[Rfam]
RNA sequence: AUUUUAUUUAUGGGGGUCAUUGUAGAAGCGUGCUCGUCGCAACCCCUGCCAGCCCUUUUCAUAGCUGCAAUUGUACA
Dot-bracket structure: ............(((((...[[[[.[[(((.......))).)))))...((((..(....)..))))...]].]]]]
Numbered sequence: 001a002u003u004u005u006a007u008u009u010a011u012g013g014g015g016g017u018c019a020u021u022g023u024a025g026a027a028g029c030g031u032g033c034u035c036g037u038c039g040c041a042a043c044c045c046c047u048g049c050c051a052g053c054c055c056u057u058u059u060c061a062u063a064g065c066u067g068c069a070a071u072u073g074u075a076c077a
Stems, first nucleotide, its partner, number of pairs: 013046005021077004026072002028040003050067004056061001